Source information:
A member of the RNA family "MIR6152 microRNA precursor family" from Nicotiana attenuata, 119 nucleotides long. Its family is annotated with miRNA-mediated post-transcriptional gene silencing and RISC complex in the Gene Ontology. The organism belongs to Nicotiana, within Eukaryota. Pairs were carried over by alignment from the consensus structure, which was predicted with RNAalifold.
RNA sequence: UAGAUAGAUUAUUGUAUUCGACUGUAUUCACGAUAUGUACAGUAACGUAAAUAGCGCAAUUCAUGGUCUAUUCAACUGUUUUUAAAUGGAAAGUGAAUCAAUUAACACAAUAGACUCCU
Numbered sequence: 001u002a003g004a005u006a007g008a009u010u011a012u013u014g015u016a017u018u019c020g021a022c023u024g025u026a027u028u029c030a031c032g033a034u035a036u037g038u039a040c041a042g043u044a045a046c047g048u049a050a051a052u053a054g055c056g057c058a059a060u061u062c063a064u065g066g067u068c069u070a071u072u073c074a075a076c077u078g079u080u081u082u083u084a085a086a087u088g089g090a091a092a093g094u095g096a097a098u099c100a101a102u103u104a105a106c107a108c109a110a111u112a113g114a115c116u117c118c119u
Base pairs, nucleotide, nucleotide: 003117004116009113010112011111012110013109014108015107017105018104020103021102023100024099026098027097028096029095030094031093034088035087036086037081039079040078041077042076043075